Record summary
The record is a 75-nucleotide RNA from Rattus norvegicus, which matches "mir-762 microRNA precursor family" in Rfam.
[Rfam]
RNA sequence: GCCCGGCUCCGGGUCUCGGCCCGCACGGUCCGGCCGGCCAUGCUGGCGGGGCUAGGGCCGGGACAGAGCCCGUGG
Numbered sequence: 001g002c003c004c005g006g007c008u009c010c011g012g013g014u015c016u017c018g019g020c021c022c023g024c025a026c027g028g029u030c031c032g033g034c035c036g037g038c039c040a041u042g043c044u045g046g047c048g049g050g051g052c053u054a055g056g057g058c059c060g061g062g063a064c065a066g067a068g069c070c071c072g073u074g075g
Base pairs, nucleotide, nucleotide: 005070006069007068008067009066012064014062015061017060018059019058020057021056022055027053028052029051030050031049033047034046035045036044037043038042
Taxonomically the source falls in Rattus (Eukaryota, Tetrapoda, Boreoeutheria, Rodentia).